Rfam assigns this 75-nucleotide RNA from Streptomyces sp. AA4 to the family "ASpks TB sRNA".

[Rfam]
RNA sequence: CUUGAUCGACCCGAGCCACAGCGGCUGGUCCCCGGAACGGUCCUGACCGUAGGUGGCCAGCAAUGCCUGCGCCUC
Numbered sequence: 001c002u003u004g005a006u007c008g009a010c011c012c013g014a015g016c017c018a019c020a021g022c023g024g025c026u027g028g029u030c031c032c033c034g035g036a037a038c039g040g041u042c043c044u045g046a047c048c049g050u051a052g053g054u055g056g057c058c059a060g061c062a063a064u065g066c067c068u069g070c071g072c073c074u075c
Stems, first nucleotide, its partner, number of pairs: 014026004031071001033069001038065002043060003047056003